The record is a 72-nucleotide RNA from Pantoea sp. A4, which matches "osmY RNA" in Rfam. Rfam classes the family as a small RNA.
RNA sequence: GCAGUGACGCCGUUUGUCGCUGCCGCUUUCAGCUUGAAAGCCAAUAACACUGACAGAAGGAAUUUAUCGAUG
Numbered sequence: 001g002c003a004g005u006g007a008c009g010c011c012g013u014u015u016g017u018c019g020c021u022g023c024c025g026c027u028u029u030c031a032g033c034u035u036g037a038a039a040g041c042c043a044a045u046a047a048c049a050c051u052g053a054c055a056g057a058a059g060g061a062a063u064u065u066a067u068c069g070a071u072g
Base pairs, nucleotide, nucleotide: 002022003021004020005019006018007017008016009015026040027039028038029037